About this RNA
Shown here is a 137-nucleotide RNA from Mastacembelus armatus, a member of the family "Small nucleolar RNA SNORA15". A search with the family's covariance model found it, with a score of 59 bits. About the family: ACA15 is a member of the H/ACA class of snoRNA that guide the sites of modification of uridines to pseudouridines. A reference for the family is Huttenhofer et al. (2001), "RNomics: an experimental approach that identifies 201 candidates for novel, small, non-messenger RNAs in mouse", EMBO J. Pairs were carried over by alignment from the consensus structure, which was predicted with RNAfold. The family has 22 seed sequences and 974 matches in Rfam 15.1.
[Rfam]
RNA sequence: GCAUGGCUGAAUUCUGUACCAGCUGGUCUGUGGUGGAUACAGUCAGACACCGUGCAAAAGCAUCAUCUCAUUUCUGCUAAAUAUGUGGAUGAGUGCUACCAAGAGCCUCAUCCAAAUGUGUAGAAAUGAGUACAACA
Numbered sequence: 001g002c003a004u005g006g007c008u009g010a011a012u013u014c015u016g017u018a019c020c021a022g023c024u025g026g027u028c029u030g031u032g033g034u035g036g037a038u039a040c041a042g043u044c045a046g047a048c049a050c051c052g053u054g055c056a057a058a059a060g061c062a063u064c065a066u067c068u069c070a071u072u073u074c075u076g077c078u079a080a081a082u083a084u085g086u087g088g089a090u091g092a093g094u095g096c097u098a099c100c101a102a103g104a105g106c107c108u109c110a111u112c113c114a115a116a117u118g119u120g121u122a123g124a125a126a127u128g129a130g131u132a133c134a135a136c137a
Base pairs, nucleotide, nucleotide: 001055002054003053004052005051006050014042015041016040017039018038067130068129069128071126072125073124074123075122076121077120081119082118083117084116086114087113088112089111090110091109092108093107